[Rfam]
RNA sequence: GAAUGAAAUGAUGAUCUUUUAUUUCCCUAUUGGUUUGAUUGCCUGCAUGAUGGCAUCUACAGUAUUAGCUCUAACUGAUCAUUC
Numbered sequence: 001g002a003a004u005g006a007a008a009u010g011a012u013g014a015u016c017u018u019u020u021a022u023u024u025c026c027c028u029a030u031u032g033g034u035u036u037g038a039u040u041g042c043c044u045g046c047a048u049g050a051u052g053g054c055a056u057c058u059a060c061a062g063u064a065u066u067a068g069c070u071c072u073a074a075c076u077g078a079u080c081a082u083u084c
Stems, first nucleotide, its partner, number of pairs: 002083004037057001040055004
RNA: Small nucleolar RNA Z102/R77
Organism: Protea cynaroides